Shown here is a 56-nucleotide RNA from Suricata suricatta, a member of the family "Antizyme RNA frameshifting stimulation element".
RNA sequence: UGAUGCCCCUCAGCUACUGUUGAAGAUUCCUAGUGGAUGAGGGGGAGGCAAGAAUC
Numbered sequence: 001u002g003a004u005g006c007c008c009c010u011c012a013g014c015u016a017c018u019g020u021u022g023a024a025g026a027u028u029c030c031u032a033g034u035g036g037a038u039g040a041g042g043g044g045g046a047g048g049c050a051a052g053a054a055u056c
Stems, first nucleotide, its partner, number of pairs: 006044006014036005025056005
On this family, see Ivanov et al., J Mol Biol 2004: "Identification of a new antizyme mRNA +1 frameshifting stimulatory pseudoknot in a subset of diverse invertebrates and its apparent absence in intermediate species". Gene Ontology term of the family: translational frameshifting. Rfam 15.1 lists 1,595 matches to the family in 640 species. The family's consensus secondary structure is taken from published work. The organism belongs to Suricata, within Eukaryota. Rfam's curators write: This family represents a structural element which is found in antizyme mRNA and is known to promote frameshifting. Antizyme genes have have two partially overlapping open reading frames, the second, which encodes the functional protein requires +1 translational frameshifting. This frameshift is stimulated by a pseudoknot present 3' of the frameshift site in the antizyme mRNA. The frameshifting efficiency is dependent on the level of polyamines in the cell, when the polyamine concentration is high frameshifting is more likely to occur which leads to an increase in the quantity of functional antizyme produced. The functional antizyme acts to reduce ornithine decarboxylase (ODC) activity which leads to a drop in polyamines present in the cell. Therefore, this family can be thought of as a biosensor for intracellular free polyamines.